[Rfam]
A member of the RNA family "7SK RNA" from Corythaixoides concolor, 321 nucleotides long. The base pairs follow the family's consensus structure, which is taken from published work. The match comes from Rfam's covariance-model search (267 bits). Its Rfam clan is "7SK clan". The source organism's lineage runs through Eukaryota, Vertebrata, Euteleostomi, Neognathae and Corythaixoides.
RNA sequence: GCACAUAAAGCUGAGCGACAUCUGUCACUCCAUUGAUCACCAGCGUUGAUGUGGCUGAUCUGGCUGGCUAGGCAGGUGUCCCCUUCCUCCCUCACCGCUCCACGCGCGUCCCUCCCAAAGCUGCACGCUCAGUCGAAGAGGAUGACCUUCCCUGAUAGAGGCGUACCGUUCAUUGGUCAAGGGUAUACAGUAGCUGUGCUCCCCUGCUAGAACCUCCAAACAAGCUCAAGGUCCAUUUGCAGGAGAAAGUAGGGUAGUCAAGCUUCCAAGACUGCAGACACAUCCAAGUGAGGUGCUGCAUGGGGCAGUCUGCCAUUGGUU
Numbered sequence: 001g002c003a004c005a006u007a008a009a010g011c012u013g014a015g016c017g018a019c020a021u022c023u024g025u026c027a028c029u030c031c032a033u034u035g036a037u038c039a040c041c042a043g044c045g046u047u048g049a050u051g052u053g054g055c056u057g058a059u060c061u062g063g064c065u066g067g068c069u070a071g072g073c074a075g076g077u078g079u080c081c082c083c084u085u086c087c088u089c090c091c092u093c094a095c096c097g098c099u100c101c102a103c104g105c106g107c108g109u110c111c112c113u114c115c116c117a118a119a120g121c122u123g124c125a126c127g128c129u130c131a132g133u134c135g136a137a138g139a140g141g142a143u144g145a146c147c148u149u150c151c152c153u154g155a156u157a158g159a160g161g162c163g164u165a166c167c168g169u170u171c172a173u174u175g176g177u178c179a180a181g182g183g184u185a186u187a188c189a190g191u192a193g194c195u196g197u198g199c200u201c202c203c204c205u206g207c208u209a210g211a212a213c214c215u216c217c218a219a220a221c222a223a224g225c226u227c228a229a230g231g232u233c234c235a236u237u238u239g240c241a242g243g244a245g246a247a248a249g250u251a252g253g254g255u256a257g258u259c260a261a262g263c264u265u266c267c268a269a270g271a272c273u274g275c276a277g278a279c280a281c282a283u284c285c286a287a288g289u290g291a292g293g294u295g296c297u298g299c300a301u302g303g304g305g306c307a308g309u310c311u312g313c314c315a316u317u318g319g320u321u
Stems, first nucleotide, its partner, number of pairs: 001090001005085001010082001017080010028067002030063003035060004040054002110163001111161004115132001118129001120128002133155003140151003193263003199257002202254006214245004221239004286321002290316001292314003295309005